[Rfam]
RNA: Small Cajal body specific RNA 21
Organism: Chinchilla lanigera
RNA sequence: UGGCUCUGUUUUCCUGGGAGGUGGACUCAGCUCCCUUCACCUCCCCUCAACUGAGCCUAGAGAAUAGAGGCCAACUGUCCUGUGUGGGAGAGGCAUUUCAAAAAGGAGCCUUGCCCGGGCUGUGUCAGCCUCACAUUU
Numbered sequence: 001u002g003g004c005u006c007u008g009u010u011u012u013c014c015u016g017g018g019a020g021g022u023g024g025a026c027u028c029a030g031c032u033c034c035c036u037u038c039a040c041c042u043c044c045c046c047u048c049a050a051c052u053g054a055g056c057c058u059a060g061a062g063a064a065u066a067g068a069g070g071c072c073a074a075c076u077g078u079c080c081u082g083u084g085u086g087g088g089a090g091a092g093g094c095a096u097u098u099c100a101a102a103a104a105g106g107a108g109c110c111u112u113g114c115c116c117g118g119g120c121u122g123u124g125u126c127a128g129c130c131u132c133a134c135a136u137u138u
Stems, first nucleotide, its partner, number of pairs: 002057005016045010067132005074125002079119003086111003